Shown here is a 105-nucleotide RNA from Hathewaya histolytica, a member of the family "SAM riboswitch aptamer (S box leader)". Lineage of the source: Bacteria > Bacillati > Clostridia > Eubacteriales > Hathewaya. The base pairs follow the family's consensus structure, which is taken from published work.
RNA sequence: UUCUUAUCAAGAGAGGUGGAGGGACUGGCCCUAUGAAGCCCAGCAACCAAUACAAUUAUUUGUAUACGGUGCUAAUUCCUGCAGCGUUAAGCUGAUAGAUGGGAC
Numbered sequence: 001u002u003c004u005u006a007u008c009a010a011g012a013g014a015g016g017u018g019g020a021g022g023g024a025c026u027g028g029c030c031c032u033a034u035g036a037a038g039c040c041c042a043g044c045a046a047c048c049a050a051u052a053c054a055a056u057u058a059u060u061u062g063u064a065u066a067c068g069g070u071g072c073u074a075a076u077u078c079c080u081g082c083a084g085c086g087u088u089a090a091g092c093u094g095a096u097a098g099a100u101g102g103g104a105c
Stems, first nucleotide, its partner, number of pairs: 002104007013041001015040003021031003025081001027079002042073004047069002050065004077097001082094004